[Rfam]
RNA sequence: UUUUGGUCCCCUAUGUAUUGGAUCUUUGGCAGUUUUUUGGCCCCCAAGGCCACUUUUGACUUAAUCUACGUUAACGUGGCACCCACAAUGGUCGACGCGUGGCACCUCACUUAAGGGAUAUGAGUGCCACGUCAGGGAAGACUAAGUCAAAAGUGACAUUGGGGGCCAAAACUGCCAAAGAUCUAAUACAUAGGGGGCUGUUU
Numbered sequence: 001u002u003u004u005g006g007u008c009c010c011c012u013a014u015g016u017a018u019u020g021g022a023u024c025u026u027u028g029g030c031a032g033u034u035u036u037u038u039g040g041c042c043c044c045c046a047a048g049g050c051c052a053c054u055u056u057u058g059a060c061u062u063a064a065u066c067u068a069c070g071u072u073a074a075c076g077u078g079g080c081a082c083c084c085a086c087a088a089u090g091g092u093c094g095a096c097g098c099g100u101g102g103c104a105c106c107u108c109a110c111u112u113a114a115g116g117g118a119u120a121u122g123a124g125u126g127c128c129a130c131g132u133c134a135g136g137g138a139a140g141a142c143u144a145a146g147u148c149a150a151a152a153g154u155g156a157c158a159u160u161g162g163g164g165g166c167c168a169a170a171a172c173u174g175c176c177a178a179a180g181a182u183c184u185a186a187u188a189c190a191u192a193g194g195g196g197g198c199u200g201u202u203u
Base pairs, nucleotide, nucleotide: 004200005199006198007197008196012192013191014190015189016188017187018186019185020184021183022182023181024180025179026178027177028176029175030174031173032172033171034170037169038168039167040166041165042164043163044162045161046160047159074132075131077129078128079127080126081125082124084122
MIR2619 microRNA precursor family: a 203-nucleotide RNA from Medicago truncatula.
Pairs were carried over by alignment from the consensus structure, which was predicted with RNAalifold.
Lineage of the source: Eukaryota > Viridiplantae > Magnoliopsida > Gunneridae > Medicago.